[Rfam]
RNA sequence: CUCGCUAUGCGACCAGCGAUAGCCUAACAAGACAUGCAUCACUGGUAACGGUGGGGUGUGAAGCUCCUGCAACAAUGUAGCCCCUUGAUGUGUGUAUUUGCUGCGAGGUGAAGCACAGAUGCUCGGAGCCGUACCGGCUUGUGGCG
Numbered sequence: 001c002u003c004g005c006u007a008u009g010c011g012a013c014c015a016g017c018g019a020u021a022g023c024c025u026a027a028c029a030a031g032a033c034a035u036g037c038a039u040c041a042c043u044g045g046u047a048a049c050g051g052u053g054g055g056g057u058g059u060g061a062a063g064c065u066c067c068u069g070c071a072a073c074a075a076u077g078u079a080g081c082c083c084c085u086u087g088a089u090g091u092g093u094g095u096a097u098u099u100g101c102u103g104c105g106a107g108g109u110g111a112a113g114c115a116c117a118g119a120u121g122c123u124c125g126g127a128g129c130c131g132u133a134c135c136g137g138c139u140u141g142u143g144g145c146g
Stems, first nucleotide, its partner, number of pairs: 002019005028069002031066002033060005039054006084090001091117004101108002121139001123137004